The family of this 118-nucleotide RNA from Corchorus olitorius is "Plastid-psbA-1 3UTR RNA". About the family: Plastid psbA-1 is a non-coding RNA (ncRNA) present in plastids. It was identified in inverted repeat sequences in the 3 prime untranslate region (3UTR) of photosystem II quinone-binding protein (psbA). The organism belongs to Corchorus, within Eukaryota. The base pairs follow the family's consensus structure, which was predicted with LocARNA. The literature on the family includes a 2023 paper in Plant Commun by Richter et al., "Retrograde signaling in plants: A critical review focusing on the GUN pathway and beyond".
RNA sequence: UUGAAGCUCCAUACUACUAAACGGCUAAGACUUUGGUUUUAGUGUAUACGAGUUUUGAAAAUAAGGAGCAAUGCCUAAUACUCUUGAUAGUAACAAGUAAAUUGGUUAUUGUCUCCUU
Number, nucleotide and partner (000 for none) at each position: 001u000002u000003g000004a000005a000006g000007c000008u000009c024010c023011a000012u021013a000014c000015u000016a000017c000018u000019a000020a000021a012022c000023g010024g009025c000026u000027a000028a000029g000030a000031c000032u000033u000034u000035g000036g000037u000038u000039u000040u000041a000042g000043u000044g000045u000046a000047u000048a000049c000050g000051a000052g000053u000054u000055u000056u000057g000058a000059a000060a000061a000062u000063a118064a117065g116066g115067a114068g113069c111070a110071a109072u108073g107074c000075c000076u000077a103078a102079u101080a000081c000082u000083c097084u096085u095086g000087a000088u000089a000090g000091u000092a000093a000094c000095a085096a084097g083098u000099a000100a000101a079102u078103u077104g000105g000106u000107u073108a072109u071110u070111g069112u000113c068114u067115c066116c065117u064118u063